Histone 3' UTR stem-loop: a 45-nucleotide RNA from Hipposideros armiger.
The organism belongs to Hipposideros, within Eukaryota.
The literature on the family includes a 1995 paper in Nucleic Acids Res by Williams and Marzluff, "The sequence of the stem and flanking sequences at the 3' end of histone mRNA are critical determinants for the binding of the stem-loop binding protein".
Rfam classes the family as a cis-regulatory element.
Rfam describes the family as follows. The mRNAs of metazoan histone genes lack a poly-A tail. 3' end processing occurs at a site between a highly conserved stem-loop (modelled by this family) and a purine rich region around 20 nts downstream (the histone downstream element, or HDE).

RNA sequence: CCAAAGGCUCUUUUCAGAGCCACCCACCCUCCUAAGAAGGCUGUA
Numbered sequence: 001c002c003a004a005a006g007g008c009u010c011u012u013u014u015c016a017g018a019g020c021c022a023c024c025c026a027c028c029c030u031c032c033u034a035a036g037a038a039g040g041c042u043g044u045a
Base pairs, nucleotide, nucleotide: 006021007020008019009018010017011016